This 127-nucleotide RNA sequence from Myotis brandtii belongs to the Rfam family "mir-9193 microRNA precursor family".

RNA sequence: CAUGCACCAGUGGGGUCCCUCAGCCUGGCCUGCAGGGAUUGGGCCAAAACCAACUCUCCGACAUUCCCCGAGGGGUCCUGGAUUGCGAGAGUGUGCAGGCCAGGCCGAGGGACCUCACUGGUGCACG
Numbered sequence: 001c002a003u004g005c006a007c008c009a010g011u012g013g014g015g016u017c018c019c020u021c022a023g024c025c026u027g028g029c030c031u032g033c034a035g036g037g038a039u040u041g042g043g044c045c046a047a048a049a050c051c052a053a054c055u056c057u058c059c060g061a062c063a064u065u066c067c068c069c070g071a072g073g074g075g076u077c078c079u080g081g082a083u084u085g086c087g088a089g090a091g092u093g094u095g096c097a098g099g100c101c102a103g104g105c106c107g108a109g110g111g112a113c114c115u116c117a118c119u120g121g122u123g124c125a126c127g
Stems, first nucleotide, its partner, number of pairs: 003125002006122001008120003012116010023105003027101008
The family's consensus secondary structure was predicted with RNAalifold. Rfam links the family to the GO terms miRNA-mediated post-transcriptional gene silencing and RISC complex.